[Rfam]
A member of the RNA family "MIR5565 microRNA precursor family" from Miscanthus lutarioriparius, 109 nucleotides long. Rfam 15.1 lists 3,346 matches to the family in 5 species. Pairs were carried over by alignment from the consensus structure, which was predicted with RNAalifold. The source organism's lineage runs through Eukaryota, Viridiplantae, Euphyllophyta, Andropogoneae and Miscanthus. Rfam links the family to the GO terms RISC complex and miRNA-mediated post-transcriptional gene silencing.
RNA sequence: GUAGUCGUAUCCACCUCAAUCCACCUGUGUUGGAGUGGAUUGGUGUGAAACUUAAAUUCUUUUCCACCCCAAUUCACUGCAACACACAUGAAUUGCGGUGGAUAAGAGU
Number, nucleotide and partner (000 for none) at each position: 001g000002u000003a000004g000005u107006c106007g000008u104009a103010u102011c101012c100013a099014c098015c000016u000017c095018a094019a093020u092021c000022c090023a089024c000025c000026u086027g085028u084029g083030u082031u081032g080033g000034a000035g077036u076037g075038g074039a073040u072041u071042g070043g069044u000045g067046u066047g065048a000049a000050a000051c000052u000053u000054a000055a000056a000057u000058u000059c000060u000061u000062u000063u000064c000065c047066a046067c045068c000069c043070c042071a041072a040073u039074u038075c037076a036077c035078u000079g000080c032081a031082a030083c029084a028085c027086a026087c000088a000089u023090g022091a000092a020093u019094u018095g017096c000097g000098g014099u013100g012101g011102a010103u009104a008105a000106g006107a005108g000109u000